[Rfam]
RNA sequence: AUCUUUGUGCACGGGCAUUAUCUGCGCCAGUGAGGAUUUAUCCGAGGCCAGAUUAUUGCUAAUUGCAAACUAUACCAAUAAUCUGUCUCCACGACCUCCUUCGGGAGGUCGGGGAGCAAUUUUUUUAAGGGAAUCAUCCC
Numbered sequence: 001a002u003c004u005u006u007g008u009g010c011a012c013g014g015g016c017a018u019u020a021u022c023u024g025c026g027c028c029a030g031u032g033a034g035g036a037u038u039u040a041u042c043c044g045a046g047g048c049c050a051g052a053u054u055a056u057u058g059c060u061a062a063u064u065g066c067a068a069a070c071u072a073u074a075c076c077a078a079u080a081a082u083c084u085g086u087c088u089c090c091a092c093g094a095c096c097u098c099c100u101u102c103g104g105g106a107g108g109u110c111g112g113g114g115a116g117c118a119a120u121u122u123u124u125u126u127a128a129g130g131g132a133a134u135c136a137u138c139c140c
Base pairs, nucleotide, nucleotide: 020053021052022051023050024049026048027047028046034043035042036041087116088115089114090113092111093110094109095108096107097106098105129140130139131138132137

The family of this 140-nucleotide RNA sequence from Dentiscutata erythropus is "U4 spliceosomal RNA".
The match comes from Rfam's covariance-model search (105 bits).
The organism belongs to Dentiscutata, within Eukaryota.
Its Rfam clan is "U4 clan".
Its family is annotated with spliceosomal tri-snRNP complex assembly and U4 snRNP in the Gene Ontology.
By type it is a spliceosomal small nuclear RNA.
The family's consensus secondary structure is taken from published work.